[Rfam]
Rfam assigns this 234-nucleotide sequence from Clostridium tepidiprofundi to the family "Group II catalytic intron D1-D4-6". Lineage of the source: Bacteria > Bacillota > Eubacteriales > Clostridium > Clostridium tepidiprofundi. Rfam links the family to the GO term Group II intron splicing. A search with the family's covariance model found it, with a score of 144 bits. Group II introns are found in rRNA, tRNA and mRNA of organelles in fungi, plants and protists, and also in mRNA in bacteria.
RNA sequence: GAAACCCUAUCAGGCAAGGUCUAACCAACCACCUGUACCGAGUCCUUGGAGUCGAAGCGGUAACGUCAGAUUUAAGCGUAGGACAGGGAGCGAACGAGCCGAAACGAAAGUGAAGUUAUUGAGCCACGAAAUUAUUAUCUAAAAGAAGAGGUCGAUAUUGUCUUAGUGAUCGCAGACAACAUUAUAUAAAUCGUAAUGGUGAGAUUUAUAUAACUCUUCCGGGGUCUGAGGACU
Numbered sequence: 001g002a003a004a005c006c007c008u009a010u011c012a013g014g015c016a017a018g019g020u021c022u023a024a025c026c027a028a029c030c031a032c033c034u035g036u037a038c039c040g041a042g043u044c045c046u047u048g049g050a051g052u053c054g055a056a057g058c059g060g061u062a063a064c065g066u067c068a069g070a071u072u073u074a075a076g077c078g079u080a081g082g083a084c085a086g087g088g089a090g091c092g093a094a095c096g097a098g099c100c101g102a103a104a105c106g107a108a109a110g111u112g113a114a115g116u117u118a119u120u121g122a123g124c125c126a127c128g129a130a131a132u133u134a135u136u137a138u139c140u141a142a143a144a145g146a147a148g149a150g151g152u153c154g155a156u157a158u159u160g161u162c163u164u165a166g167u168g169a170u171c172g173c174a175g176a177c178a179a180c181a182u183u184a185u186a187u188a189a190a191u192c193g194u195a196a197u198g199g200u201g202a203g204a205u206u207u208a209u210a211u212a213a214c215u216c217u218u219c220c221g222g223g224g225u226c227u228g229a230g231g232a233c234u
Stems, first nucleotide, its partner, number of pairs: 011035004018030003022202001024200002038087002042084001044082003047078002049073005056066001058065002120228001121226001123225003127221002145219006151177003157170003182213011